[Rfam]
RNA sequence: AAGUUAGUGAUGAUUAUAAAAAUAAUUCUUCGUUUUGACUAACGUAAUUUAAGCAUGACAAACCUUUUAUUACAAUCACAGAAUUUGAGCUAC
Numbered sequence: 001a002a003g004u005u006a007g008u009g010a011u012g013a014u015u016a017u018a019a020a021a022a023u024a025a026u027u028c029u030u031c032g033u034u035u036u037g038a039c040u041a042a043c044g045u046a047a048u049u050u051a052a053g054c055a056u057g058a059c060a061a062a063c064c065u066u067u068u069a070u071u072a073c074a075a076u077c078a079c080a081g082a083a084u085u086u087g088a089g090c091u092a093c
Base pairs, nucleotide, nucleotide: 003093004092006091007090
Rfam assigns this 93-nucleotide RNA from Theobroma cacao to the family "Small nucleolar RNA snoR8a". Gene Ontology terms of the family: nucleolus and RNA processing. Rfam 15.1 lists 956 matches to the family in 245 species. By type it is a C/D-box small nucleolar RNA. A search with the family's covariance model found it, with a score of 52 bits.